[Rfam]
RNA sequence: GGAAGAGAACGUUCCCCGGUGGGGCGGCCGGUCUUCAAAACCGGCAGGGGUCGCCAUGCGGUCCCUGGUGGGUUCGACUCCCGCUCUCUUCC
Numbered sequence: 001g002g003a004a005g006a007g008a009a010c011g012u013u014c015c016c017c018g019g020u021g022g023g024g025c026g027g028c029c030g031g032u033c034u035u036c037a038a039a040a041c042c043g044g045c046a047g048g049g050g051u052c053g054c055c056a057u058g059c060g061g062u063c064c065c066u067g068g069u070g071g072g073u074u075c076g077a078c079u080c081c082c083g084c085u086c087u088c089u090u091c092c
Stems, first nucleotide, its partner, number of pairs: 001092008010026003014023003027045006047065005069083004
The record is a 92-nucleotide RNA from Sulfuritalea hydrogenivorans, which matches "Selenocysteine transfer RNA" in Rfam. The literature on the family includes a 1997 paper in Nucleic Acids Res by Lowe and Eddy, "tRNAscan-SE: a program for improved detection of transfer RNA genes in genomic sequence". Lineage of the source: Bacteria > Betaproteobacteria > Sterolibacteriaceae > Sulfuritalea > Sulfuritalea hydrogenivorans.